[Rfam]
RNA sequence: UGACGGAAGGACACCACAAGGAGUGGAUUGUGCGGCUUAAUUUGACUCAACGCGGGGCAACUUACCAGGGCCGAAUGCAUAGGAGAUCGGCUGUCUGAGAGGGUACCCGAGAUUAUGCAGGAGGUGGUGCAUGGCCGUUUUCAACACGUGGGGUGGCCUGUCUGGUUAAUUCCGUAAACGCGUGAGGCCUGGGAAGCAAUUCAUUGCUUGACGGAUAGCGGCAAGCUAUAGGAAGACAGGCUAUAACAGGUCAGUGAUGCCCCUAGAUGUUCUGGGCUGCACGCGCAAUACAAUGGUAUAGUGAGACUAUGUACUGAAAAGUAUGCUUUAAGCUAUAUCGAAUCUGGGAUAAGCUCUUGUAAAUGAGUUUUGAACGAGGAAUUCCUAGUAAUCGCAGGUCAUAAUGCUGCGAUGAAUGCGUCCCUGUUCUUUGUACACACCGCCCGUCACUAUCUUAGAUGGAUGUAUCGGUGAAAUGGCUGGACGAAAGAAAGGCAGUUGAACCUAUACAAUUAGAUAAGAUAUAAGUCGUAACAAGGCUGCUAUAGGUGAACCUGUGGCAGGAUCAUUA
Numbered sequence: 001u002g003a004c005g006g007a008a009g010g011a012c013a014c015c016a017c018a019a020g021g022a023g024u025g026g027a028u029u030g031u032g033c034g035g036c037u038u039a040a041u042u043u044g045a046c047u048c049a050a051c052g053c054g055g056g057g058c059a060a061c062u063u064a065c066c067a068g069g070g071c072c073g074a075a076u077g078c079a080u081a082g083g084a085g086a087u088c089g090g091c092u093g094u095c096u097g098a099g100a101g102g103g104u105a106c107c108c109g110a111g112a113u114u115a116u117g118c119a120g121g122a123g124g125u126g127g128u129g130c131a132u133g134g135c136c137g138u139u140u141u142c143a144a145c146a147c148g149u150g151g152g153g154u155g156g157c158c159u160g161u162c163u164g165g166u167u168a169a170u171u172c173c174g175u176a177a178a179c180g181c182g183u184g185a186g187g188c189c190u191g192g193g194a195a196g197c198a199a200u201u202c203a204u205u206g207c208u209u210g211a212c213g214g215a216u217a218g219c220g221g222c223a224a225g226c227u228a229u230a231g232g233a234a235g236a237c238a239g240g241c242u243a244u245a246a247c248a249g250g251u252c253a254g255u256g257a258u259g260c261c262c263c264u265a266g267a268u269g270u271u272c273u274g275g276g277c278u279g280c281a282c283g284c285g286c287a288a289u290a291c292a293a294u295g296g297u298a299u300a301g302u303g304a305g306a307c308u309a310u311g312u313a314c315u316g317a318a319a320a321g322u323a324u325g326c327u328u329u330a331a332g333c334u335a336u337a338u339c340g341a342a343u344c345u346g347g348g349a350u351a352a353g354c355u356c357u358u359g360u361a362a363a364u365g366a367g368u369u370u371u372g373a374a375c376g377a378g379g380a381a382u383u384c385c386u387a388g389u390a391a392u393c394g395c396a397g398g399u400c401a402u403a404a405u406g407c408u409g410c411g412a413u414g415a416a417u418g419c420g421u422c423c424c425u426g427u428u429c430u431u432u433g434u435a436c437a438c439a440c441c442g443c444c445c446g447u448c449a450c451u452a453u454c455u456u457a458g459a460u461g462g463a464u465g466u467a468u469c470g471g472u473g474a475a476a477u478g479g480c481u482g483g484a485c486g487a488a489a490g491a492a493a494g495g496c497a498g499u500u501g502a503a504c505c506u507a508u509a510c511a512a513u514u515a516g517a518u519a520a521g522a523u524a525u526a527a528g529u530c531g532u533a534a535c536a537a538g539g540c541u542g543c544u545a546u547a548g549g550u551g552a553a554c555c556u557g558u559g560g561c562a563g564g565a566u567c568a569u570u571a
Stems, first nucleotide, its partner, number of pairs: 001437002003434003007431007016421002020385005025291001027289008035280002041056004065275007076119006087110004123263002126261004132257001133255001134251003137247003144183002147180003150159003163174003189239003203208001212232001215229005295339008346375001351370006391413007442535001445531002448528001451524007460515003464511005470505003475500003479496002540563010